[Rfam]
RNA sequence: GUUUUUCUGCAUGUGGAUAGUGUUCAGCACCAAGGACAGGUACCUUUGUGGGUAGUGUUCAGCACCAAGGACAGGUAUGUUUGUGU
Numbered sequence: 001g002u003u004u005u006u007c008u009g010c011a012u013g014u015g016g017a018u019a020g021u022g023u024u025c026a027g028c029a030c031c032a033a034g035g036a037c038a039g040g041u042a043c044c045u046u047u048g049u050g051g052g053u054a055g056u057g058u059u060c061a062g063c064a065c066c067a068a069g070g071a072c073a074g075g076u077a078u079g080u081u082u083g084u085g086u
Stems, first nucleotide, its partner, number of pairs: 004077001006075004018067001020065005026059005032053001034049001036047001038045002
The family of this 86-nucleotide RNA from Branchiostoma floridae is "mir-2060 microRNA precursor family". The family's consensus secondary structure was predicted with RNAalifold. Rfam 15.1 lists 3,696 matches to the family in 4 species. Taxonomically the source falls in Branchiostoma (Eukaryota, Eumetazoa, Deuterostomia, Leptocardii). Gene Ontology terms of the family: RISC complex and miRNA-mediated post-transcriptional gene silencing.